[Rfam]
RNA: Fluoride riboswitch aptamer (crcB RNA motif)
RNA sequence: CGAGGCGAUGGGGAUGGAGUUCCCCGAAACCGCCCCCUGCGGGACACCCCCGUCCGGGCUGAUGACUCCUACCGCAAC
Numbered sequence: 001c002g003a004g005g006c007g008a009u010g011g012g013g014a015u016g017g018a019g020u021u022c023c024c025c026g027a028a029a030c031c032g033c034c035c036c037c038u039g040c041g042g043g044a045c046a047c048c049c050c051c052g053u054c055c056g057g058g059c060u061g062a063u064g065a066c067u068c069c070u071a072c073c074g075c076a077a078c
Stems, first nucleotide, its partner, number of pairs: 010025004016069006032059004